Acido-Lenti-1 RNA: a 44-nucleotide RNA from Fuerstiella marisgermanici. NCBI's taxonomy places the organism under Bacteria, Pseudomonadati, Planctomycetota, Planctomycetales, Fuerstiella. The base pairs follow the family's consensus structure, which is taken from published work. It is annotated as a small RNA.
RNA sequence: CCUCGGGCUGACGCCCGAGGCUACGUUCUGCCGCCCUCCGGGCG
Numbered sequence: 001c002c003u004c005g006g007g008c009u010g011a012c013g014c015c016c017g018a019g020g021c022u023a024c025g026u027u028c029u030g031c032c033g034c035c036c037u038c039c040g041g042g043c044g
Stems, first nucleotide, its partner, number of pairs: 001020008033043004
Dot-bracket structure: ((((((((....))))))))............((((...)))).